[Rfam]
RNA: Small nucleolar RNA snoR27
RNA sequence: GGUGGAUCAUUGAUGUGAUACAGAAUUUUAAACUGCGUUAUCUUUCUAGAAUUUCCAGUUUCUGGGAUUGAAGAAACAUUUUGUUAUGCUGAGAUCCAAC
Numbered sequence: 001g002g003u004g005g006a007u008c009a010u011u012g013a014u015g016u017g018a019u020a021c022a023g024a025a026u027u028u029u030a031a032a033c034u035g036c037g038u039u040a041u042c043u044u045u046c047u048a049g050a051a052u053u054u055c056c057a058g059u060u061u062c063u064g065g066g067a068u069u070g071a072a073g074a075a076a077c078a079u080u081u082u083g084u085u086a087u088g089c090u091g092a093g094a095u096c097c098a099a100c
Stems, first nucleotide, its partner, number of pairs: 001100001003098005